[Rfam]
RNA sequence: GGGAAAAGAGUGCUGGGCCGGGGCCAGGGGGGAGCCCAGGCUCAGGAGGGAGCAGUCCCA
Numbered sequence: 001g002g003g004a005a006a007a008g009a010g011u012g013c014u015g016g017g018c019c020g021g022g023g024c025c026a027g028g029g030g031g032g033a034g035c036c037c038a039g040g041c042u043c044a045g046g047a048g049g050g051a052g053c054a055g056u057c058c059c060a
Stems, first nucleotide, its partner, number of pairs: 014044006021037004028059004

A member of the RNA family "Ma3 gene ribosomal frameshift signal" from Origma solitaria, 60 nucleotides long. The base pairs follow the family's consensus structure, which is taken from published work. The source organism's lineage runs through Eukaryota, Opisthokonta, Neognathae, Australaves and Origma. The family's RNA type in Rfam is frameshift element. The literature on the family includes a 2006 paper in J Biol Chem by Wills et al., "A functional -1 ribosomal frameshift signal in the human paraneoplastic Ma3 gene".